[Rfam]
RNA: Xanthine riboswitch aptamer (NMT1 RNA)
RNA sequence: GCGCAGAGUAGAAGCGUUCAGUCCACCGGCCUUCGUCCACCCCCUGGCGAAGCCGGCCGCGACGGGAAAUUGCUCUUCGG
Numbered sequence: 001g002c003g004c005a006g007a008g009u010a011g012a013a014g015c016g017u018u019c020a021g022u023c024c025a026c027c028g029g030c031c032u033u034c035g036u037c038c039a040c041c042c043c044c045u046g047g048c049g050a051a052g053c054c055g056g057c058c059g060c061g062a063c064g065g066g067a068a069a070u071u072g073c074u075c076u077u078c079g080g
Base pairs, nucleotide, nucleotide: 005076006075007074008073009072010071015065018067019066021063022062023061026056027055028054029053030052